[Rfam]
RNA sequence: AAUGAAAAAAGCAAACCCGCCAAAAGACGGGGACGCAAAGCUUCGGGUCUAAGGCUUUUGCUAAGACAGCCGGGUUGCCAUGC
Numbered sequence: 001a002a003u004g005a006a007a008a009a010a011g012c013a014a015a016c017c018c019g020c021c022a023a024a025a026g027a028c029g030g031g032g033a034c035g036c037a038a039a040g041c042u043u044c045g046g047g048u049c050u051a052a053g054g055c056u057u058u059u060g061c062u063a064a065g066a067c068a069g070c071c072g073g074g075u076u077g078c079c080a081u082g083c
Stems, first nucleotide, its partner, number of pairs: 003080002011036002016031004021026001034069001039076004044072003047067003
RNA: c-di-GMP-I-GGC riboswitch aptamer
Organism: Clostridium sp. KNHs216